Rfam assigns this 159-nucleotide sequence from Nocardia speluncae to the family "FMN riboswitch aptamer (RFN element)". Pairs were carried over by alignment from the consensus structure, which is taken from published work. It scores 99 bits against the family's covariance model.

RNA sequence: ACACGUUCUCAGGGCGGGGUGGAAUUCCCCACCGGCGGUAAUGGCAUCCGGACCGAUCCGGGGGCACGAGCCCGCGAGCGCCACCACCCGUGGUGGGUCGAGCAGAUUCCGGUGCGAUCCCGGAGCCGACGGUCACAGUCCGGAUGAAAGAGAACGCGG
Numbered sequence: 001a002c003a004c005g006u007u008c009u010c011a012g013g014g015c016g017g018g019g020u021g022g023a024a025u026u027c028c029c030c031a032c033c034g035g036c037g038g039u040a041a042u043g044g045c046a047u048c049c050g051g052a053c054c055g056a057u058c059c060g061g062g063g064g065c066a067c068g069a070g071c072c073c074g075c076g077a078g079c080g081c082c083a084c085c086a087c088c089c090g091u092g093g094u095g096g097g098u099c100g101a102g103c104a105g106a107u108u109c110c111g112g113u114g115c116g117a118u119c120c121c122g123g124a125g126c127c128g129a130c131g132g133u134c135a136c137a138g139u140c141c142g143g144a145u146g147a148a149a150g151a152g153a154a155c156g157c158g159g
Stems, first nucleotide, its partner, number of pairs: 004156007017029003031139002033128002035075004070126002078103002108124005130142003